[Rfam]
RNA: SAM riboswitch aptamer (S box leader)
Organism: Agathobaculum faecis
RNA sequence: UCCUUAUCGAGAGCGGUGGAGGGAACGGCCCUGUGAAACCCGGCAACCUGCGCAAAUCCAUGCGUAAGGUGCCAAAUCCGGCGUAUGAACACGAAAGAUGAGGG
Numbered sequence: 001u002c003c004u005u006a007u008c009g010a011g012a013g014c015g016g017u018g019g020a021g022g023g024a025a026c027g028g029c030c031c032u033g034u035g036a037a038a039c040c041c042g043g044c045a046a047c048c049u050g051c052g053c054a055a056a057u058c059c060a061u062g063c064g065u066a067a068g069g070u071g072c073c074a075a076a077u078c079c080g081g082c083g084u085a086u087g088a089a090c091a092c093g094a095a096a097g098a099u100g101a102g103g104g
Base pairs, nucleotide, nucleotide: 001104002103003102004101005100006099007098008097013041015040016039017038021031022030023029026080027079028078042073043072044071045070047069048068050065051064052063053062077096082093083092084091